Plastid-psbN 5UTR RNA: a 56-nucleotide RNA from Prunus avium. Rfam's curators write: Plastid psbN is a non-coding RNA (ncRNA) recognised in plastids. It was reported as a conserved 11 stem-loop in the prime untranslated region (5UTR) of psbN genes. It has been reported that the motif is retained in a subset of mature transcripts in barley, which can suggests a possible role in transcript alternative 5 prime processing. A reference for the family is Zhelyazkova et al. (2012), "The primary transcriptome of barley chloroplasts: numerous noncoding RNAs and the dominating role of the plastid-encoded RNA polymerase", Plant Cell. The family's RNA type in Rfam is cis-regulatory element. Lineage of the source: Eukaryota > Spermatophyta > eudicotyledons > Gunneridae > Prunus.

[Rfam]
RNA sequence: UGCGAGACCCAGGAGUAGUUCCCCACUUAGAAGCUACUUUACCAUAUUCUAAAUUC
Numbered sequence: 001u002g003c004g005a006g007a008c009c010c011a012g013g014a015g016u017a018g019u020u021c022c023c024c025a026c027u028u029a030g031a032a033g034c035u036a037c038u039u040u041a042c043c044a045u046a047u048u049c050u051a052a053a054u055u056c
Stems, first nucleotide, its partner, number of pairs: 012040009022030001
A search with the family's covariance model found it, with a score of 57 bits.